[Rfam]
RNA sequence: UAUUAGGUUGGUGCAAAAGUAAUAGUGGUUUUUGCCAUUACUCGGAAUGGCAAAAACCGCUAUUACUUUUGCACCAACUUAGUA
Numbered sequence: 001u002a003u004u005a006g007g008u009u010g011g012u013g014c015a016a017a018a019g020u021a022a023u024a025g026u027g028g029u030u031u032u033u034g035c036c037a038u039u040a041c042u043c044g045g046a047a048u049g050g051c052a053a054a055a056a057c058c059g060c061u062a063u064u065a066c067u068u069u070u071g072c073a074c075c076a077a078c079u080u081a082g083u084a
Stems, first nucleotide, its partner, number of pairs: 001084039
RNA: mir-548 microRNA precursor family